[Rfam]
Rfam assigns this 124-nucleotide RNA to the family "Betaproteobacteria-1 RNA". It is one of the family's seed sequences. Pairs were carried over by alignment from the consensus structure, which is taken from published work.
RNA sequence: CACCGCGCUGGUCGGACUUGGUUUAACGACAGCGGCGCGGGAAGAGCGGGGGACUGUGGGAUAGGUCUGAAACACCCCGAUGCGGCGGCGAAGGCAGCACCGCAGACCGAAAAGGCUACCGGGU
Numbered sequence: 001c002a003c004c005g006c007g008c009u010g011g012u013c014g015g016a017c018u019u020g021g022u023u024u025a026a027c028g029a030c031a032g033c034g035g036c037g038c039g040g041g042a043a044g045a046g047c048g049g050g051g052g053a054c055u056g057u058g059g060g061a062u063a064g065g066u067c068u069g070a071a072a073c074a075c076c077c078c079g080a081u082g083c084g085g086c087g088g089c090g091a092a093g094g095c096a097g098c099a100c101c102g103c104a105g106a107c108c109g110a111a112a113a114g115g116c117u118a119c120c121g122g123g124u
Base pairs, nucleotide, nucleotide: 003040004039005038006037007036008035009034010033029057030056031055032054047079048078049077050076051075064108065107066106067105081104082103083102084101085100093120094119096117097116098115